[Rfam]
RNA sequence: CAGCAGCGGGUCAGGUAUUCCAAAUACGUUUAAAAACACCAAGGCGAUGACUGGACGAUCGGCCAAGUUGACCAAUACUCAAAACCACUGGUGUGAACAUCUCCCCCAAGUGCUCCACCAGGCAAGGUACCGUGGACCGCGUACCUUGAUUUACUCCUAAUGGUCUUAACCCGGAUUCAUCCCCCAGAAUCCGG
Numbered sequence: 001c002a003g004c005a006g007c008g009g010g011u012c013a014g015g016u017a018u019u020c021c022a023a024a025u026a027c028g029u030u031u032a033a034a035a036a037c038a039c040c041a042a043g044g045c046g047a048u049g050a051c052u053g054g055a056c057g058a059u060c061g062g063c064c065a066a067g068u069u070g071a072c073c074a075a076u077a078c079u080c081a082a083a084a085c086c087a088c089u090g091g092u093g094u095g096a097a098c099a100u101c102u103c104c105c106c107c108a109a110g111u112g113c114u115c116c117a118c119c120a121g122g123c124a125a126g127g128u129a130c131c132g133u134g135g136a137c138c139g140c141g142u143a144c145c146u147u148g149a150u151u152u153a154c155u156c157c158u159a160a161u162g163g164u165c166u167u168a169a170c171c172c173g174g175a176u177u178c179a180u181c182c183c184c185c186a187g188a189a190u191c192c193g194g
Stems, first nucleotide, its partner, number of pairs: 038164004088121003092117002095114001098112003123148008131139001171194004176189003